[Rfam]
RNA sequence: AUCAUAAGAGGCAAAUCUAUCGAAAGGUAGAGACGCAAAGCCACGGGUCUAAGGGUAGUACUUCGUACUAUUACGAUAGCCGGGUUGCAGAAU
Numbered sequence: 001a002u003c004a005u006a007a008g009a010g011g012c013a014a015a016u017c018u019a020u021c022g023a024a025a026g027g028u029a030g031a032g033a034c035g036c037a038a039a040g041c042c043a044c045g046g047g048u049c050u051a052a053g054g055g056u057a058g059u060a061c062u063u064c065g066u067a068c069u070a071u072u073a074c075g076a077u078a079g080c081c082g083g084g085u086u087g088c089a090g091a092a093u
Stems, first nucleotide, its partner, number of pairs: 001093001003090001011036002016031006034079001039086004044082003047077003
RNA: c-di-GMP-I-GGC riboswitch aptamer